Overview
Rfam assigns this 161-nucleotide RNA sequence from Myotis brandtii to the family "U1 spliceosomal RNA".
[Rfam]
Nucleotides: 161
Base pairs, nucleotide, nucleotide: 012120013119014118015117016048017047018046019045020044021043023042024041025040026039027038049089050088051087056081057080059078060077061076062075063074090115091114092113094110095109097107098106142161145158146157
Number, partner (000 for none) and nucleotide at each position: 001000g002000u003000a004000c005000u006000c007000a008000c009000c010000u011000g012120g013119c014118a015117g016048g017047g018046g019045a020044g021043a022000u023042g024041c025040u026039g027038u028000g029000c030000u031000c032000c033000u034000g035000a036000a037000g038027g039026u040025g041024g042023u043021u044020u045019u046018c047017c048016c049089c050088a051087g052000c053000a054000a055000g056081g057080c058000u059078u060077a061076c062075c063074c064000u065000c066000u067000g068000c069000g070000c071000u072000c073000c074063g075062g076061g077060u078059g079000u080057g081056c082000g083000g084000g085000c086000c087051c088050u089049g090115c091114g092113a093000c094110u095109u096000g097107c098106c099000c100000a101000g102000u103000u104000g105000u106098g107097g108000g109095a110094g111000a112000c113092u114091c115090g116000a117015c118014u119013g120012c121000a122000u123000c124000a125000u126000u127000u128000g129000u130000g131000g132000u133000g134000a135000u136000g137000g138000g139000g140000g141000a142161u143000u144000a145158g146157a147000a148000a149000g150000u151000u152000a153000a154000a155000g156000u157146u158145u159000a160000a161142a
Its Rfam clan is "U1 clan".
NCBI's taxonomy places the organism under Eukaryota, Opisthokonta, Metazoa, Deuterostomia, Myotis.
By type it is a spliceosomal small nuclear RNA.
On this family, see Zwieb, Nucleic Acids Res 1997: "The uRNA database".
Pairs were carried over by alignment from the consensus structure, which is taken from published work.
U1 is a small nuclear RNA (snRNA) component of the spliceosome (involved in pre-mRNA splicing). Its 5' end forms complementary base pairs with the 5' splice junction, thus defining the 5' donor site of an intron.